[Rfam]
RNA sequence: GCCACCGAAAAGAAUAGUCCUCGUAUAUCACCGGGAAUAUGGCCCGGAAGUAUCUACCUGAAAACCGUAAAUUUUCGGACUACGAGUGAAUACAUGACAGAA
Numbered sequence: 001g002c003c004a005c006c007g008a009a010a011a012g013a014a015u016a017g018u019c020c021u022c023g024u025a026u027a028u029c030a031c032c033g034g035g036a037a038u039a040u041g042g043c044c045c046g047g048a049a050g051u052a053u054c055u056a057c058c059u060g061a062a063a064a065c066c067g068u069a070a071a072u073u074u075u076c077g078g079a080c081u082a083c084g085a086g087u088g089a090a091u092a093c094a095u096g097a098c099a100g101a102a
Base pairs, nucleotide, nucleotide: 018088020086021085022084023083024082025081031047032046033045034044035043058078059077060076061075062074063073064072
Record summary: Rfam assigns this 102-nucleotide sequence from Paenibacillus anaericanus to the family "Purine riboswitch aptamer". NCBI's taxonomy places the organism under Bacteria, Bacillota, Caryophanales, Paenibacillaceae, Paenibacillus. The match comes from Rfam's covariance-model search (80 bits). Rfam's curators write: Riboswitches are metabolite binding domains within certain messenger RNAs that serve as precision sensors for their corresponding targets.